Shown here is a 513-nucleotide part of an RNA from Calothrix sp. PCC 7507, a member of the family "Bacterial small subunit ribosomal RNA". The family is grouped with related families in Rfam's "SSU clan". The organism belongs to Calothrix, within Bacteria. The family's consensus secondary structure is taken from published work. Rfam links the family to the GO terms structural constituent of ribosome and ribosome.
RNA sequence: AAAACGGAGAGUUUGAUCCUGGCUCAGGAUGAACGCUGGCGGUAUGCUUAACACAUGCAAGUCGAACGAAAUCUUUAGGGAUUGAGUGGCGGACGGGUGAGUAACGCGUGAGAAUCUGCCUUCAGGUUGGGGACAACCACUGGAAACGGUGGCUAAUACCGAAUGUGCCGAGAGGUGAAAGGCUUGCUGCCUGAAGAAGAGCUCGCGUCUGAUUAGCUAGUUGGUGGGGUAAGAGCCUACCAAGGCGACGAUCAGUAGCUGGUCUGAGAGGAUGAUCAGCCACACUGGGACUGAGACACGGCCCAGACUCCUACGGGAGGCAGCAGUGGGGAAUUUUCCGCAAUGGGCGAAAGCCUGACGGAGCAAUACCGCGUGAGGGAGGAAGGCUCUUGGGUCGUAAACCUCUUUUCUCAGGGAAGAAAAAAAUGACGGUACCUGAGGAAUAAGCAUCGGCUAACUCCGUGCCAGCAGCCGCGGUAAUACGGAGGAUGCAAGCGUUAUCCGGAAUGAUUG
Numbered sequence: 001a002a003a004a005c006g007g008a009g010a011g012u013u014u015g016a017u018c019c020u021g022g023c024u025c026a027g028g029a030u031g032a033a034c035g036c037u038g039g040c041g042g043u044a045u046g047c048u049u050a051a052c053a054c055a056u057g058c059a060a061g062u063c064g065a066a067c068g069a070a071a072u073c074u075u076u077a078g079g080g081a082u083u084g085a086g087u088g089g090c091g092g093a094c095g096g097g098u099g100a101g102u103a104a105c106g107c108g109u110g111a112g113a114a115u116c117u118g119c120c121u122u123c124a125g126g127u128u129g130g131g132g133a134c135a136a137c138c139a140c141u142g143g144a145a146a147c148g149g150u151g152g153c154u155a156a157u158a159c160c161g162a163a164u165g166u167g168c169c170g171a172g173a174g175g176u177g178a179a180a181g182g183c184u185u186g187c188u189g190c191c192u193g194a195a196g197a198a199g200a201g202c203u204c205g206c207g208u209c210u211g212a213u214u215a216g217c218u219a220g221u222u223g224g225u226g227g228g229g230u231a232a233g234a235g236c237c238u239a240c241c242a243a244g245g246c247g248a249c250g251a252u253c254a255g256u257a258g259c260u261g262g263u264c265u266g267a268g269a270g271g272a273u274g275a276u277c278a279g280c281c282a283c284a285c286u287g288g289g290a291c292u293g294a295g296a297c298a299c300g301g302c303c304c305a306g307a308c309u310c311c312u313a314c315g316g317g318a319g320g321c322a323g324c325a326g327u328g329g330g331g332a333a334u335u336u337u338c339c340g341c342a343a344u345g346g347g348c349g350a351a352a353g354c355c356u357g358a359c360g361g362a363g364c365a366a367u368a369c370c371g372c373g374u375g376a377g378g379g380a381g382g383a384a385g386g387c388u389c390u391u392g393g394g395u396c397g398u399a400a401a402c403c404u405c406u407u408u409u410c411u412c413a414g415g416g417a418a419g420a421a422a423a424a425a426a427u428g429a430c431g432g433u434a435c436c437u438g439a440g441g442a443a444u445a446a447g448c449a450u451c452g453g454c455u456a457a458c459u460c461c462g463u464g465c466c467a468g469c470a471g472c473c474g475c476g477g478u479a480a481u482a483c484g485g486a487g488g489a490u491g492c493a494a495g496c497g498u499u500a501u502c503c504g505g506a507a508u509g510a511u512u513g
Stems, first nucleotide, its partner, number of pairs: 009025005027503004032499006039372006045365002047330001052328003056325003061090003066087002069083002072081003097283003106208007115200002120196007128162001130160002137152006168175002181188002209255003216246003221243008258280004262273004285306005308319004336362001338361003344357005375405004385396004410440006419430001447492005458487005468475002